[Rfam]
RNA sequence: UGCCUCGUUAUUCAGCAAAGGGACACAAUAUGCUGUGUCUCUGAAUUGAAAAACGUGGCUAGAAGAGUAACAGGUUAUGCUUUCCUCACUGCAAAGCUAGUUGCAGUGGUGACAAUGAGGCCUGUAACAAGU
Numbered sequence: 001u002g003c004c005u006c007g008u009u010a011u012u013c014a015g016c017a018a019a020g021g022g023a024c025a026c027a028a029u030a031u032g033c034u035g036u037g038u039c040u041c042u043g044a045a046u047u048g049a050a051a052a053a054c055g056u057g058g059c060u061a062g063a064a065g066a067g068u069a070a071c072a073g074g075u076u077a078u079g080c081u082u083u084c085c086u087c088a089c090u091g092c093a094a095a096g097c098u099a100g101u102u103g104c105a106g107u108g109g110u111g112a113c114a115a116u117g118a119g120g121c122c123u124g125u126a127a128c129a130a131g132u
Base pairs, nucleotide, nucleotide: 002059003058004057006055007054008053019042020041021040022039023038024037025036070125071124072123073122074121084111086109087108088107089106

Rfam assigns this 132-nucleotide RNA from Cuculus canorus to the family "Small nucleolar RNA SNORA1". Rfam classes the family as an H/ACA-box small nucleolar RNA. NCBI's taxonomy places the organism under Eukaryota, Sarcopterygii, Dinosauria, Theropoda, Cuculus. Rfam's curators write: ACA1 is a member of the H/ACA class of snoRNA that guide the sites of modification of uridines to pseudouridines. It scores 99 bits against the family's covariance model.